Nucleotides: 086
Base pairs, nucleotide, nucleotide: 001086002085004084005083006082007081009078012027013026014025015024016023017022028046029045030044031043032042033041048061049060050059063077064076065075066074
Number, partner (000 for none) and nucleotide at each position: 001086g002085c003000a004084c005083u006082g007081a008000u009078g010000a011000c012027c013026c014025u015024c016023a017022g018000u019000g020000g021000u022017c023016u024015g025014g026013g027012g028046u029045g030044c031043a032042g033041g034000c035000u036000u037000c038000a039000a040000a041033c042032c043031u044030g045029c046028a047000g048061c049060u050059g051000u052000c053000c054000a055000g056000c057000a058000u059050c060049a061048g062000a063077g064076u065075g066074g067000u068000u069000c070000a071000a072000u073000u074066c075065c076064a077063c078009c079000u080000c081007u082006c083005a084004g085002g086001c